[Rfam]
RNA sequence: GACGGGCAACACGGGAGUCCCGGGAACGGGGACUGAGAGUGGGCAUCGCCGGCCCUUACCGUCACACCUGAUCCGGGUCAUGCCGGCGAAGGGAGCAGGAUCUAUGACACG
Numbered sequence: 001g002a003c004g005g006g007c008a009a010c011a012c013g014g015g016a017g018u019c020c021c022g023g024g025a026a027c028g029g030g031g032a033c034u035g036a037g038a039g040u041g042g043g044c045a046u047c048g049c050c051g052g053c054c055c056u057u058a059c060c061g062u063c064a065c066a067c068c069u070g071a072u073c074c075g076g077g078u079c080a081u082g083c084c085g086g087c088g089a090a091g092g093g094a095g096c097a098g099g100a101u102c103u104a105u106g107a108c109a110c111g
Stems, first nucleotide, its partner, number of pairs: 007098001010095001011062004016056001017033005041055004067092003073086004
The family of this 111-nucleotide sequence from Mycolicibacterium smegmatis is "TPP riboswitch aptamer (THI element)". The source organism's lineage runs through Bacteria, Actinomycetota, Mycobacteriales, Mycobacterium and Mycolicibacterium smegmatis. The base pairs follow the family's consensus structure, which is taken from published work.